[Rfam]
RNA sequence: GCCGACCCUGCGCGAACAGACUAUAGCGGGAGCUUGUGAAAAGCUCAUAGUUGACCAGUCUAAGUUCUAUGAGAACUCCGUUAUUUCCAAGAGUUAAAGUCCUACCUGGGGAUGCGUAGCUAGUCCCCAGCUCUAGAACCCGGUCGUUAAACAGAUGUAAUUGAGUUAAGUCAGUGCGAUCAGGAAAGUACCGAGAAAUAACUUUGACGAAGCUAACUUUAC
Numbered sequence: 001g002c003c004g005a006c007c008c009u010g011c012g013c014g015a016a017c018a019g020a021c022u023a024u025a026g027c028g029g030g031a032g033c034u035u036g037u038g039a040a041a042a043g044c045u046c047a048u049a050g051u052u053g054a055c056c057a058g059u060c061u062a063a064g065u066u067c068u069a070u071g072a073g074a075a076c077u078c079c080g081u082u083a084u085u086u087c088c089a090a091g092a093g094u095u096a097a098a099g100u101c102c103u104a105c106c107u108g109g110g111g112a113u114g115c116g117u118a119g120c121u122a123g124u125c126c127c128c129a130g131c132u133c134u135a136g137a138a139c140c141c142g143g144u145c146g147u148u149a150a151a152c153a154g155a156u157g158u159a160a161u162u163g164a165g166u167u168a169a170g171u172c173a174g175u176g177c178g179a180u181c182a183g184g185a186a187a188g189u190a191c192c193g194a195g196a197a198a199u200a201a202c203u204u205u206g207a208c209g210a211a212g213c214u215a216a217c218u219u220u221a222c
Stems, first nucleotide, its partner, number of pairs: 001051002004048001006032001008029004034043002058208003062204001063077005080202008100137002106130008114218001117215005139184002142181006151175002154172003158168003
Rfam assigns this 222-nucleotide RNA from Moorena producens to the family "HNH endonuclease-associated RNA and ORF (HEARO) RNA". Rfam 15.1 lists 952 matches to the family in 249 species. For this family Rfam cites "Exceptional structured noncoding RNAs revealed by bacterial metagenome analysis" (Weinberg et al., Nature, 2009). By type it is a non-coding RNA gene.